[Rfam]
RNA sequence: AAACCAUGCCGCUAGGGUUCCGGUCGCGCUGACGCGCGGCGCUGGUCCGAGAGCAGCAAGCCGCGCCAGACAGCGCGGCCACACGGCGGGACAAAAGCCCGGGAGAU
Numbered sequence: 001a002a003a004c005c006a007u008g009c010c011g012c013u014a015g016g017g018u019u020c021c022g023g024u025c026g027c028g029c030u031g032a033c034g035c036g037c038g039g040c041g042c043u044g045g046u047c048c049g050a051g052a053g054c055a056g057c058a059a060g061c062c063g064c065g066c067c068a069g070a071c072a073g074c075g076c077g078g079c080c081a082c083a084c085g086g087c088g089g090g091a092c093a094a095a096a097g098c099c100c101g102g103g104a105g106a107u
Stems, first nucleotide, its partner, number of pairs: 007058003011054002015048002020045002022042001023040006060079007082102001084105001088100003
Dot-bracket structure: ......(((.((..((...(((((((((......)))))).).)).))....)).))).(((((((......)))))))..(.[...(((.......))).)..]..

Shown here is a 107-nucleotide RNA from Terrihabitans soli, a member of the family "Guanidine-I riboswitch aptamer".